The record is a 106-nucleotide sequence from Geosporobacter ferrireducens, which matches "Glycine riboswitch aptamer" in Rfam.
[Rfam]
RNA sequence: UCGAUGAAUGCGGGAGAGAGUUCGUAAUGAACCGCCGAAGGAAAAAGUGGUGCUGGCCUGCCUGUCACACCGCGAAAUUCUCAGGCAAAGGGACCGUAUUUUGACA
Numbered sequence: 001u002c003g004a005u006g007a008a009u010g011c012g013g014g015a016g017a018g019a020g021u022u023c024g025u026a027a028u029g030a031a032c033c034g035c036c037g038a039a040g041g042a043a044a045a046a047g048u049g050g051u052g053c054u055g056g057c058c059u060g061c062c063u064g065u066c067a068c069a070c071c072g073c074g075a076a077a078u079u080c081u082c083a084g085g086c087a088a089a090g091g092g093a094c095c096g097u098a099u100u101u102u103g104a105c106a
Stems, first nucleotide, its partner, number of pairs: 006101008020032004034086003037082002041080003047073006